The family of this 127-nucleotide RNA from Polypterus senegalus is "U4atac minor spliceosomal RNA". Its family is annotated with pre-mRNA 5'-splice site binding, mRNA 5'-splice site recognition and U4atac snRNP in the Gene Ontology. A search with the family's covariance model found it, with a score of 90 bits. The source organism's lineage runs through Eukaryota, Teleostomi, Actinopterygii, Cladistia and Polypterus. For this family Rfam cites "Evolutionary conservation of minor U12-type spliceosome between plants and humans" (Lorkovic et al., RNA, 2005). Clan: U4 clan. Pairs were carried over by alignment from the consensus structure, which is taken from published work. U4atac is an essential component of the minor U12-type spliceosome complex which is required for removal of the rarer class of eukaryotic introns (AT-AC, U12-type).
RNA sequence: ACCAUCUUUGUCUUGGGGUUGGGCGGCUGUUCAAUGAUCGUUAAGUGAGCACAGCCCUGCUAACACCUGAACGACACAUACGCAUCACCUGGACUUCGGUUCAGGCUCGGGUGCAAUUUUUGGAAAC
Numbered sequence: 001a002c003c004a005u006c007u008u009u010g011u012c013u014u015g016g017g018g019u020u021g022g023g024c025g026g027c028u029g030u031u032c033a034a035u036g037a038u039c040g041u042u043a044a045g046u047g048a049g050c051a052c053a054g055c056c057c058u059g060c061u062a063a064c065a066c067c068u069g070a071a072c073g074a075c076a077c078a079u080a081c082g083c084a085u086c087a088c089c090u091g092g093a094c095u096u097c098g099g100u101u102c103a104g105g106c107u108c109g110g111g112u113g114c115a116a117u118u119u120u121u122g123g124a125a126a127c
Base pairs, nucleotide, nucleotide: 006018007017008016009015021060023058026055027054028053029052030051032049039045082114083113084112085111086110089104090103091102092101093100094099